[Rfam]
RNA sequence: CGGAUGCGGUAACGCAUUUCGUGCGGCGAGAAGUCAGCAGAGGUCGUAGUAGUGACCCUCGAUUCCCAAUCGAGACGCGAAGGAC
Numbered sequence: 001c002g003g004a005u006g007c008g009g010u011a012a013c014g015c016a017u018u019u020c021g022u023g024c025g026g027c028g029a030g031a032a033g034u035c036a037g038c039a040g041a042g043g044u045c046g047u048a049g050u051a052g053u054g055a056c057c058c059u060c061g062a063u064u065c066c067c068a069a070u071c072g073a074g075a076c077g078c079g080a081a082g083g084a085c
Stems, first nucleotide, its partner, number of pairs: 002019007034041002043085003052078003059073003
RNA: Group II catalytic intron D1-D4-1
Organism: Allorhodopirellula solitaria